[Rfam]
RNA sequence: CGUGCCGGGGUGGCCAGGCCUUGUGGCCCACUAACCCUAAUGGCGGCUGCGCCCCUCACUCCCGCCCGCUGUUUUACUCGCUGACUUUCAGUGGGCGAAGGGAGCGGCCUUAGAAAUGGGGGGGAGGGGAGAAAAAAAAGCCAGCGAGAGGGUCCACACCCCGGCCCACCCUGGGGUCCCUGUCUCUCCUCCGCAAACGGGACUGCUUCCGCGCUCCCGCCGUCGCCCUUCGUAGAGGCCGUGGUCGGCAGGCUCAGCGCCAGUACCGCCGCGAAGAGCUCGUCUCUGUCAGCCUUGGCGACGGCCGGAGCCGGAGGGCUGUCCCGCCCAUCUUGUGUAGACGGAGAACCCCAGCAGAACAAAACGGGUGCGGCGCCGGUGGGCGCUGAGCCGCAGCUCCCUCAGACGUGAGGUGCGCUGUCGGCGCCGCCCCGACACCC
Number, nucleotide and partner (000 for none) at each position: 001c000002g000003u000004g000005c164006c163007g162008g161009g160010g159011u158012g157013g000014c000015c000016a000017g000018g153019c152020c151021u150022u149023g000024u000025g000026g000027c000028c000029c000030a000031c000032u000033a000034a000035c000036c000037c000038u000039a000040a000041u000042g000043g000044c000045g000046g000047c000048u000049g000050c000051g105052c104053c000054c102055c101056u000057c000058a000059c000060u000061c000062c000063c097064g096065c095066c094067c093068g092069c091070u090071g089072u000073u000074u000075u000076a000077c000078u000079c000080g145081c144082u143083g142084a000085c140086u138087u137088u136089c071090a070091g069092u068093g067094g066095g065096c064097g063098a000099a000100g000101g055102g054103a000104g052105c051106g000107g000108c000109c000110u000111u000112a000113g000114a000115a000116a000117u000118g000119g000120g000121g000122g000123g000124g000125a000126g000127g000128g000129g000130a000131g000132a000133a000134a000135a000136a088137a087138a086139a000140g085141c000142c083143a082144g081145c080146g000147a000148g000149a022150g021151g020152g019153u018154c000155c000156a000157c012158a011159c010160c009161c008162c007163g006164g005165c000166c000167c000168a000169c000170c000171c354172u353173g352174g351175g350176g349177u348178c000179c000180c000181u000182g000183u000184c000185u000186c000187u000188c000189c000190u000191c000192c000193g000194c000195a000196a000197a000198c000199g000200g324201g323202a322203c321204u000205g319206c318207u317208u316209c000210c000211g000212c000213g000214c310215u309216c308217c307218c000219g000220c000221c000222g302223u301224c300225g299226c298227c000228c000229u000230u000231c000232g000233u000234a000235g000236a000237g000238g000239c000240c273241g272242u271243g270244g269245u000246c268247g267248g266249c000250a000251g261252g260253c259254u000255c000256a000257g000258c000259g253260c252261c251262a000263g000264u000265a000266c248267c247268g246269c244270c243271g242272c241273g240274a000275a287276g286277a285278g284279c000280u000281c000282g000283u000284c278285u277286c276287u275288g000289u000290c000291a000292g000293c000294c000295u000296u000297g000298g226299c225300g224301a223302c222303g000304g000305c000306c000307g217308g216309a215310g214311c000312c000313g000314g000315a000316g208317g207318g206319c205320u000321g203322u202323c201324c200325c000326g000327c000328c000329c000330a000331u000332c000333u000334u000335g000336u000337g000338u000339a000340g000341a000342c000343g000344g000345a000346g000347a000348a177349c176350c175351c174352c173353a172354g171355c000356a000357g000358a000359a000360c000361a000362a000363a000364a000365c000366g000367g000368g432369u000370g430371c429372g428373g427374c426375g425376c424377c423378g000379g000380u000381g000382g000383g000384c000385g000386c000387u000388g000389a000390g000391c000392c000393g000394c420395a419396g418397c417398u413399c412400c000401c410402u000403c000404a000405g000406a000407c000408g000409u000410g401411a000412g399413g398414u000415g000416c000417g397418c396419u395420g394421u000422c000423g377424g376425c375426g374427c373428c372429g371430c370431c000432c368433c000434g000435a000436c000437a000438c000439c000440c000
RNA: Vertebrate telomerase RNA